[Rfam]
RNA sequence: UUUUUUACGGAAAUUUUGGCCUUCCCACAAGGGAAGGCCAGGGACUUCCUU
Dot-bracket structure: ........((.((.(((((((((((......)))))))))))...)).)).
Numbered sequence: 001u002u003u004u005u006u007a008c009g010g011a012a013a014u015u016u017u018g019g020c021c022u023u024c025c026c027a028c029a030a031g032g033g034a035a036g037g038c039c040a041g042g043g044a045c046u047u048c049c050u051u
Stems, first nucleotide, its partner, number of pairs: 009050002012047002015042011
Overview
The family of this 51-nucleotide RNA from Lentivirus humimdef1 is "HIV Ribosomal frameshift signal". The literature on the family includes a 2004 paper in J Virol by Biswas et al., "The human immunodeficiency virus type 1 ribosomal frameshifting site is an invariant sequence determinant and an important target for antiviral therapy". Pairs were carried over by alignment from the consensus structure, which is taken from published work. Rfam describes the family as follows. This family represents the HIV Ribosomal frameshift signal. HIV uses a system called -1 ribosomal frameshifting to produce the required ratio of Gag and Gag-Pol polyproteins. The stem-loop structure of the frameshift signal is thought to impede the ribosome and cause slippage in the 5' direction, this causes the -1 frameshift and translation then continues in the new frame. Rfam links the family to the GO term viral translational frameshifting. The source organism's lineage runs through Viruses, Pararnavirae, Revtraviricetes, Ortervirales and Lentivirus humimdef1.